The family of this 307-nucleotide RNA sequence from Hymenoscyphus fraxineus is "Group I catalytic intron". It scores 98 bits against the family's covariance model. From the family's description: Group I catalytic introns are large self-splicing ribozymes. They catalyse their own excision from mRNA, tRNA and rRNA precursors in a wide range of organisms.
RNA sequence: CGAUAAGGUUACUGUAAAAGCAGCCUAAUUGUCGAAGUGAACCUUCGGCUACAAACCAUCAAAUUGCGGGGACGCCCUAAAGCAAUCUCAACCAAACGAAAAUGGCAACAUAUUUCGUGGCACAGGUAAUGACUCGUGGUAUGGUAAAAUCGAGAUUGAUACAUGUAAAUGAAUGGGUAAUCCGCAGCCAAGCACCAAAUACCUUUUGGGUAUAGGGUGUGCAGUUCAUCGACUAGAUGUUGGUUGGCUUUUUUAUUUUAUAAUAAAAUGGCUUAAGAUAUAGUCAAGCCUCAUUCGAAAGAAUGCA
Numbered sequence: 001c002g003a004u005a006a007g008g009u010u011a012c013u014g015u016a017a018a019a020g021c022a023g024c025c026u027a028a029u030u031g032u033c034g035a036a037g038u039g040a041a042c043c044u045u046c047g048g049c050u051a052c053a054a055a056c057c058a059u060c061a062a063a064u065u066g067c068g069g070g071g072a073c074g075c076c077c078u079a080a081a082g083c084a085a086u087c088u089c090a091a092c093c094a095a096a097c098g099a100a101a102a103u104g105g106c107a108a109c110a111u112a113u114u115u116c117g118u119g120g121c122a123c124a125g126g127u128a129a130u131g132a133c134u135c136g137u138g139g140u141a142u143g144g145u146a147a148a149a150u151c152g153a154g155a156u157u158g159a160u161a162c163a164u165g166u167a168a169a170u171g172a173a174u175g176g177g178u179a180a181u182c183c184g185c186a187g188c189c190a191a192g193c194a195c196c197a198a199a200u201a202c203c204u205u206u207u208g209g210g211u212a213u214a215g216g217g218u219g220u221g222c223a224g225u226u227c228a229u230c231g232a233c234u235a236g237a238u239g240u241u242g243g244u245u246g247g248c249u250u251u252u253u254u255a256u257u258u259u260a261u262a263a264u265a266a267a268a269u270g271g272c273u274u275a276a277g278a279u280a281u282a283g284u285c286a287a288g289c290c291u292c293a294u295u296c297g298a299a300a301g302a303a304u305g306c307a
Stems, first nucleotide, its partner, number of pairs: 054245005060239002065186006075177003187225002192220004199213005229286001231285005247272003251268005292305005
For this family Rfam cites "Crystal structure of a group I ribozyme domain: principles of RNA packing" (Cate et al., Science, 1996). Rfam links the family to the GO term Group I intron splicing.